[Rfam]
RNA sequence: UCGUGCUAGACGGGGAACUAGCGGUGCCCUGUAACCCGCAAUCCGCUCUAGCGGGGUCGAAUUCCCACUGGCGGUCCGUCUGGAGGAGACCGGAUUUUAAACCAGUGGCGAUGAAGGUUAGGUCUUGCGCAAUUUACGCACGCCCAACCCCGCCAGGACCGGAAGGUAGCAACGGUAAGCGAAAGCGGAAUGUGCCGCAGGAGAGCCUAACUGGAGCAGGCUGUUUAAAGUCCGCUCCAAAAGAGGAACAAAAGUGGGUGCACGA
Dot-bracket structure: ((((((..(((((((.(((...))).))))....(((((...........)))))))).....((((((...(.(((.(((...((((...((...((((((..((.((......((((((((((((((((.(((.((..(..(.....(((.....(((....))).....)))...).)....)))))))...))))))...))))))))...))..)).))))))..))..))))...)))))).)...)))))).))))))